[Rfam]
RNA sequence: ACAGUACAAACUGAACAGGCCGCGGAUUCAGAAUUGAAUUUGGGAGCCGGGCUGCGCAAUGCGGCAGCAGAUGGAGUUUCAUGCAUCUGUGGGACAGUA
Numbered sequence: 001a002c003a004g005u006a007c008a009a010a011c012u013g014a015a016c017a018g019g020c021c022g023c024g025g026a027u028u029c030a031g032a033a034u035u036g037a038a039u040u041u042g043g044g045a046g047c048c049g050g051g052c053u054g055c056g057c058a059a060u061g062c063g064g065c066a067g068c069a070g071a072u073g074g075a076g077u078u079u080c081a082u083g084c085a086u087c088u089g090u091g092g093g094a095c096a097g098u099a
Base pairs, nucleotide, nucleotide: 010098011097012096013095016093018048019047020046023042024041025040026039027038028037051065052064053063054062055061067090068089069088070087071086072085
Dot-bracket structure: .........((((..(.(((..((((((........))))))...)))..(((((.....))))).((((((............))))))..).)))).
The record is a 99-nucleotide RNA from Pseudoflavonifractor sp. AF19-9AC, which matches "NiCo (Nickel/Cobalt) riboswitch aptamer" in Rfam.
Rfam links the family to the GO terms cobalt ion binding and metal ion homeostasis.
Taxonomically the source falls in Pseudoflavonifractor (Bacteria, Bacillati, Bacillota, Clostridia).